RNA sequence: CGCCACUUCCAUCACUACGGAUCGUCCGGCACGUACCUGCCGGUGAGGAGAAACAA
Numbered sequence: 001c002g003c004c005a006c007u008u009c010c011a012u013c014a015c016u017a018c019g020g021a022u023c024g025u026c027c028g029g030c031a032c033g034u035a036c037c038u039g040c041c042g043g044u045g046a047g048g049a050g051a052a053a054c055a056a
Base pairs, nucleotide, nucleotide: 008049009048010047012046013045014044026043027042028041029040030039031038
Dot-bracket structure: .......(((.(((...........((((((......)))))))))))).......
Description:
A member of the RNA family "msiK RNA" from Microbacterium sp. SA39, 56 nucleotides long. The family's RNA type in Rfam is cis-regulatory element. Rfam 15.1 lists 1,374 matches to the family in 1,364 species.